RNA sequence: UGUUCUCUGAGUUGUUUGUGAUUGGACUGACGUCCCUGAGCCGAUAAUUGUUUAUACAAAGGGUUUUAUAUGUGUUGUCAGUGUGCAGGCCCAGCUUGUACUGGGAAGCCUAAGCCAACCACUUUAACUCCCGCCUUGAACCCAUGGUUCAAGGGCAACAAUUCGACACGGCAAUUUGGAGAAUCC
Numbered sequence: 001u002g003u004u005c006u007c008u009g010a011g012u013u014g015u016u017u018g019u020g021a022u023u024g025g026a027c028u029g030a031c032g033u034c035c036c037u038g039a040g041c042c043g044a045u046a047a048u049u050g051u052u053u054a055u056a057c058a059a060a061g062g063g064u065u066u067u068a069u070a071u072g073u074g075u076u077g078u079c080a081g082u083g084u085g086c087a088g089g090c091c092c093a094g095c096u097u098g099u100a101c102u103g104g105g106a107a108g109c110c111u112a113a114g115c116c117a118a119c120c121a122c123u124u125u126a127a128c129u130c131c132c133g134c135c136u137u138g139a140a141c142c143c144a145u146g147g148u149u150c151a152a153g154g155g156c157a158a159c160a161a162u163u164c165g166a167c168a169c170g171g172c173a174a175u176u177u178g179g180a181g182a183a184u185c186c
Stems, first nucleotide, its partner, number of pairs: 002184014017170003032156004037151006061132003066127003070123001072122002074119004079114001085109002090105005
RNA: 6S / SsrS RNA